Small Cajal body specific RNA 6: a 262-nucleotide RNA sequence from Equus caballus.
Pairs were carried over by alignment from the consensus structure, which is taken from published work.
It is annotated as a small Cajal body RNA.
Rfam links the family to the GO terms RNA processing and nucleolus.
Rfam's curators write: U88 is small Cajal body specific RNA (scaRNA). scaRNAs are a novel class of small nuclear RNAs which localise to the Cajal bodies.

RNA sequence: GGUCAGUGAUGAGUAGUAAAAAGGCUGACUCCCCAGGUCCCCUCCUUGCGUCUUCAUCAUCCCCAGAUGCCUCUCUCCAUCCGGCUCCAGUGAUGCUCUGAUGGGCAAAGGGGCAGCUGACACUCCGUGAGGUCCCAGUUCUGUGUUCUUGGCAAGCCCAGGGCCGAUGGCGUAGUUGGCGUCCCACAGCUUGUCACGAAGGGAUUUGAUUGUUGGCAGUGCUGGUAUCUGUGGUUGUGAUCGGAAGGUUCAAGCUGAGGCC
Dot-bracket structure: ((((.............................(.((((..((.((.((..........(((((((.(((.....((((((.(((.........).)).)))))).......))).))).......(.((.(((......(..((.(((((.......))))).))..)........))).)))................)))).......)).)).))...................)))).)..............))))